RNA sequence: UUGACAGCACUGGAAACUGCAGUUCUCCAUUUAUCCACAGAACAGGUACAGCACGGGCAGCGGCAGUGCAAGCUUUCCCCCACUGCCCUUCCAAUGUGCCUCAGCCCUGUUCUGGACUGGAGGGGCAGCCUCUGAGGGUGAGAGGGACAUUCAGUUUCCAAGUCCAUACAUUUUUUUAUGUUG
Numbered sequence: 001u002u003g004a005c006a007g008c009a010c011u012g013g014a015a016a017c018u019g020c021a022g023u024u025c026u027c028c029a030u031u032u033a034u035c036c037a038c039a040g041a042a043c044a045g046g047u048a049c050a051g052c053a054c055g056g057g058c059a060g061c062g063g064c065a066g067u068g069c070a071a072g073c074u075u076u077c078c079c080c081c082a083c084u085g086c087c088c089u090u091c092c093a094a095u096g097u098g099c100c101u102c103a104g105c106c107c108u109g110u111u112c113u114g115g116a117c118u119g120g121a122g123g124g125g126c127a128g129c130c131u132c133u134g135a136g137g138g139u140g141a142g143a144g145g146g147a148c149a150u151u152c153a154g155u156u157u158c159c160a161a162g163u164c165c166a167u168a169c170a171u172u173u174u175u176u177u178a179u180g181u182u183g
Base pairs, nucleotide, nucleotide: 002170003169007164011160012159013158014157015156016155017154018153019152021150024147025146026145027144030142031141032140033139034138035137038114039113040112042110048101051099052098053097054096055095062087063086064085065084066083118134119133120132121131122130123129
Shown here is a 183-nucleotide RNA from Hymenochirus boettgeri, a member of the family "TUC338". Lineage of the source: Eukaryota > Eumetazoa > Dipnotetrapodomorpha > Pipoidea > Hymenochirus. It is annotated as a cis-regulatory element.